[Rfam]
Nucleotides: 200
Base pairs, nucleotide, nucleotide: 006195007194008193009192010191011190017086018085019084020083021082023080024079025078033071034070035069036068037067038066039065090124091123092122094120095119096118097117098116099115100114101113125151126150129147130146131145132144133143135141154184155183156182157181
Number, partner (000 for none) and nucleotide at each position: 001000a002000g003000a004000u005000g006195a007194g008193g009192u010191a011190g012000a013000g014000g015000u016000c017086g018085c019084g020083a021082u022000u023080g024079u025078g026000a027000a028000g029000a030000g031000u032000a033071c034070a035069c036068g037067g038066a039065a040000g041000g042000a043000g044000g045000c046000g047000c048000u049000u050000g051000a052000a053000g054000c055000c056000g057000c058000c059000g060000a061000g062000g063000a064000a065039u066038u067037u068036c069035g070034u071033g072000a073000a074000a075000a076000g077000g078025c079024a080023c081000c082021g083020u084019c085018g086017c087000c088000g089000a090124a091123g092122u093000u094120u095119g096118c097117u098116u099115g100114g101113u102000u103000c104000g105000c106000u107000u108000c109000a110000a111000u112000c113101a114100c115099c116098a117097a118096g119095c120094a121000u122092g123091c124090u125151g126150g127000g128000a129147c130146u131145g132144u133143u134000a135141c136000c137000g138000a139000a140000a141135g142000g143133g144132a145131c146130a147129g148000a149000a150126c151125u152000g153000u154184c155183a156182c157181g158000u159000u160000u161000g162000a163000u164000c165000c166000u167000g168000u169000a170000u171000c172000a173000g174000g175000g176000a177000c178000a179000u180000u181157c182156g183155u184154g185000u186000u187000g188000a189000g190011c191010u192009a193008u194007c195006u196000u197000c198000a199000g200000g

Rfam assigns this 200-nucleotide RNA sequence from Fontibacillus panacisegetis to the family "Lysine riboswitch aptamer".
It scores 103 bits against the family's covariance model.
NCBI's taxonomy places the organism under Bacteria, Bacillati, Bacillota, Bacilli, Fontibacillus.
Pairs were carried over by alignment from the consensus structure, which is taken from published work.